[Rfam]
RNA sequence: ACGACCUUACUUGAACAGGAUUUGUUCUAUAGGCUCGUACCACUGUAUCCUUGCGUUCUAAGGAGACAGAAAACUAAGUCUGGUUGAUGAGACAUGGCCAUUGGACCAGAGCGUGAUUAACAGCUCCCAUGGCCCUCGGGUUAUGGUGUCGUAGAUGAUCGCUCUCAGCCCCUAACCAUGGGUGCUGGGAUGGUCUAAUGGCUGUCUGACAGACU
Dot-bracket structure: (((.(((.....((((((...))))))...))).).))....((((.((((((.....)))))).))))........(((((..............((((((((((((.((((......((.((.(.(((((((....)))))))).)).)).......)))).(((((.((((....)))).)))))..)))))))))))).......))))).
The record is a 215-nucleotide RNA sequence from Nicotiana attenuata, which matches "Plant small nucleolar RNA U3" in Rfam.
Gene Ontology terms of the family: RNA processing and nucleolus.
The family's consensus secondary structure is taken from published work.
NCBI's taxonomy places the organism under Eukaryota, Streptophytina, eudicotyledons, Solanaceae, Nicotiana.
Rfam's curators write: Small nucleolar RNAs (snoRNAs) are involved in the processing and modification of rRNA in the nucleolus. There are two main classes of snoRNAs: the box C/D class, and the box H/ACA class. U3 snoRNA is a member of the box C/D class. Indeed, the box C/D element is a subset of the six short sequence elements found in all U3 snoRNAs, namely boxes A, A', B, C, C', and D. The U3 snoRNA secondary structure is characterised by a small 5' domain (with boxes A and A'), and a larger 3' domain (with boxes B, C, C', and D), the two domains being linked by a single-stranded hinge. Boxes B and C form the B/C motif, which appears to be exclusive to U3 snoRNAs, and boxes C' and D form the C'/D motif. The latter is functionally similar to the C/D motifs found in other snoRNAs. The 5' domain and the hinge region act as a pre-rRNA-binding domain. The 3' domain has conserved protein-binding sites. Both the box B/C and box C'/D motifs are sufficient for nuclear retention of U3 snoRNA. The box C'/D motif is also necessary for nucleolar localisation, stability and hyper-methylation of U3 snoRNA. Both box B/C and C'/D motifs are involved in specific protein interactions and are necessary for the rRNA processing functions of U3 snoRNA.
Its Rfam clan is "U3 clan".